The family of this 91-nucleotide RNA from Salvia splendens is "Small nucleolar RNA snoR8a".
[Rfam]
RNA sequence: GUGGUUGCGAUGAUUGUAAAACAAUUCCUCGUACUGAUUGCUGUUACGCAGCUUGACAGACUCAUUUUACACCCAUAGAAUAUGAGCAAUC
Numbered sequence: 001g002u003g004g005u006u007g008c009g010a011u012g013a014u015u016g017u018a019a020a021a022c023a024a025u026u027c028c029u030c031g032u033a034c035u036g037a038u039u040g041c042u043g044u045u046a047c048g049c050a051g052c053u054u055g056a057c058a059g060a061c062u063c064a065u066u067u068u069a070c071a072c073c074c075a076u077a078g079a080a081u082a083u084g085a086g087c088a089a090u091c
Stems, first nucleotide, its partner, number of pairs: 003091002006088002
About this RNA: On this family, see Brown et al., RNA 2001: "Multiple snoRNA gene clusters from Arabidopsis". The family has 7 seed sequences and 956 matches in Rfam 15.1.